The record is a 115-nucleotide RNA, which matches "mir-395 microRNA precursor family" in Rfam.
Rfam describes the family as follows. mir-395 was identified in both Arabidopsis thaliana and Oryza sativa computationally and was later experimentally verified. mir-395 is thought to target mRNAs coding for ATP sulphurylases. The mature sequence is excised from the 3' arm of the hairpin.
Gene Ontology terms of the family: RISC complex and miRNA-mediated post-transcriptional gene silencing.
Rfam 15.1 lists 2,798 matches to the family in 234 species.
RNA sequence: UUGUCUCUUAGAGUUCCUUUGAACGCUUCAUGCAUGAGAAUAUCUAUUUGGUCUAAAAUCCAUUAGAAAAAUAGUUCUUCUUAAAUGAAGUGUUUGGGGGAACUCUUGGGUUCAA
Numbered sequence: 001u002u003g004u005c006u007c008u009u010a011g012a013g014u015u016c017c018u019u020u021g022a023a024c025g026c027u028u029c030a031u032g033c034a035u036g037a038g039a040a041u042a043u044c045u046a047u048u049u050g051g052u053c054u055a056a057a058a059u060c061c062a063u064u065a066g067a068a069a070a071a072u073a074g075u076u077c078u079u080c081u082u083a084a085a086u087g088a089a090g091u092g093u094u095u096g097g098g099g100g101a102a103c104u105c106u107u108g109g110g111u112u113c114a115a
Stems, first nucleotide, its partner, number of pairs: 006110003011105010022095002024092008034082001